RNA sequence: CGAGCCGGCCGGGCGAUCGCGGGGCGGCCGCGCAGGCGGACGCCCUGAGGAAAGUCCGAGCUGCACAGGGCAGGGUGCUGGAUAACGUCCAGUGGGGGCGACCCUAAGGAAAGUGCCACAGAAAACAAACCGCCGGGCAUGCCCGGUAAGGGUGAAACGGUGCGGUAAGAGCGCACCAGAGGUCAGGUGACUGGCCUGCUUGGUAAACCCCACCCGCAGCAAGACCGAAUAGGAAGAGGAUGAGGCGGCCCGCGGACUCUUCGGGUUGGUCGCUAGAGGUUCCCGGCAACGGGGAUCCCAGAUAAAUGAUCGCCCACGACAGAACUCGGCUUACAGGCCGACUCGCGCC
Numbered sequence: 001c002g003a004g005c006c007g008g009c010c011g012g013g014c015g016a017u018c019g020c021g022g023g024g025c026g027g028c029c030g031c032g033c034a035g036g037c038g039g040a041c042g043c044c045c046u047g048a049g050g051a052a053a054g055u056c057c058g059a060g061c062u063g064c065a066c067a068g069g070g071c072a073g074g075g076u077g078c079u080g081g082a083u084a085a086c087g088u089c090c091a092g093u094g095g096g097g098g099c100g101a102c103c104c105u106a107a108g109g110a111a112a113g114u115g116c117c118a119c120a121g122a123a124a125a126c127a128a129a130c131c132g133c134c135g136g137g138c139a140u141g142c143c144c145g146g147u148a149a150g151g152g153u154g155a156a157a158c159g160g161u162g163c164g165g166u167a168a169g170a171g172c173g174c175a176c177c178a179g180a181g182g183u184c185a186g187g188u189g190a191c192u193g194g195c196c197u198g199c200u201u202g203g204u205a206a207a208c209c210c211c212a213c214c215c216g217c218a219g220c221a222a223g224a225c226c227g228a229a230u231a232g233g234a235a236g237a238g239g240a241u242g243a244g245g246c247g248g249c250c251c252g253c254g255g256a257c258u259c260u261u262c263g264g265g266u267u268g269g270u271c272g273c274u275a276g277a278g279g280u281u282c283c284c285g286g287c288a289a290c291g292g293g294g295a296u297c298c299c300a301g302a303u304a305a306a307u308g309a310u311c312g313c314c315c316a317c318g319a320c321a322g323a324a325c326u327c328g329g330c331u332u333a334c335a336g337g338c339c340g341a342c343u344c345g346c347g348c349c
Base pairs, nucleotide, nucleotide: 001345002344003343004342006340007339008338009337010336011334012314013313014312015311016310017309018308020047021046022045023044024043025042026041028039029038030037052332053331054330056329057328058327059326060325061219062218063217064216068251069250070249071248073215074214075213076212077211078092079091080090081089082088093107094105095104096103097102108210109209113208114207115204116203117202130151131150132147133146134145135144136143137142159177160176161175162174163173164172179199180197181196182195183194184193185192186191223271224270225269226268233262234261235260236259237258238257245253246252278297279296280295281294282293283292284291285290

Shown here is a 349-nucleotide sequence from Candidatus Hydrogenisulfobacillus filiaventi, a member of the family "Bacterial RNase P class A". Its family is annotated with tRNA processing, dimeric ribonuclease P complex and ribonuclease P activity in the Gene Ontology. It is annotated as a ribozyme. Lineage of the source: Bacteria > Bacillati > Bacillota > Eubacteriales > Candidatus Hydrogenisulfobacillus. A search with the family's covariance model found it, with a score of 315 bits.